The family of this 65-nucleotide RNA sequence from Alicyclobacillaceae bacterium I2511 is "Fluoride riboswitch aptamer (crcB RNA motif)". Its family is annotated with positive regulation of gene expression and response to fluoride in the Gene Ontology.
RNA sequence: UCCCGCUUCGGUGAUGGAGCUCACCGUAAACAGCCUUGUGAGAGGAUAAUAGCCCCUGCGCAAAA
Numbered sequence: 001u002c003c004c005g006c007u008u009c010g011g012u013g014a015u016g017g018a019g020c021u022c023a024c025c026g027u028a029a030a031c032a033g034c035c036u037u038g039u040g041a042g043a044g045g046a047u048a049a050u051a052g053c054c055c056c057u058g059c060g061c062a063a064a065a
Base pairs, nucleotide, nucleotide: 010025011024012023013022016056017055019053020052021051034045035044036043
Rfam 15.1 lists 2,293 matches to the family in 1,982 species. A search with the family's covariance model found it, with a score of 35 bits.